Notes
This 82-nucleotide RNA from Clarias magur belongs to the Rfam family "Small nucleolar RNA SNORD53/SNORD92". For this family Rfam cites "Site-specific ribose methylation of preribosomal RNA: a novel function for small nucleolar RNAs" (Kiss-Laszlo et al., Cell, 1996). By type it is a C/D-box small nucleolar RNA.
[Rfam]
Nucleotides: 082
Stems, first nucleotide, its partner, number of pairs: 001082004
Number, partner (000 for none) and nucleotide at each position: 001082u002081u003080a004079a005000u006000a007000u008000g009000a010000u011000g012000a013000u014000g015000c016000a017000a018000g019000a020000g021000a022000a023000u024000g025000g026000u027000u028000u029000c030000g031000c032000u033000u034000a035000c036000u037000u038000g039000a040000c041000u042000g043000a044000g045000g046000u047000c048000a049000u050000g051000u052000g053000a054000u055000g056000u057000c058000a059000u060000a061000c062000u063000u064000c065000u066000c067000u068000u069000g070000g071000c072000u073000g074000u075000c076000u077000g078000a079004u080003u081002g082001g